A member of the RNA family "MIR2617 microRNA precursor family" from Medicago truncatula, 84 nucleotides long. The source organism's lineage runs through Eukaryota, Pentapetalae, fabids, Hologalegina and Medicago. The family's consensus secondary structure was predicted with RNAalifold.
RNA sequence: AAGCAGUGUAGCAUGCCCGUUAGGUGUUAAACUCUGAUUUACUUUUAUAUUUAUAUUGUUGGGAAAACGGGGUGUUACAUAAUC
Numbered sequence: 001a002a003g004c005a006g007u008g009u010a011g012c013a014u015g016c017c018c019g020u021u022a023g024g025u026g027u028u029a030a031a032c033u034c035u036g037a038u039u040u041a042c043u044u045u046u047a048u049a050u051u052u053a054u055a056u057u058g059u060u061g062g063g064a065a066a067a068c069g070g071g072g073u074g075u076u077a078c079a080u081a082a083u084c
Stems, first nucleotide, its partner, number of pairs: 003083001006080009016071006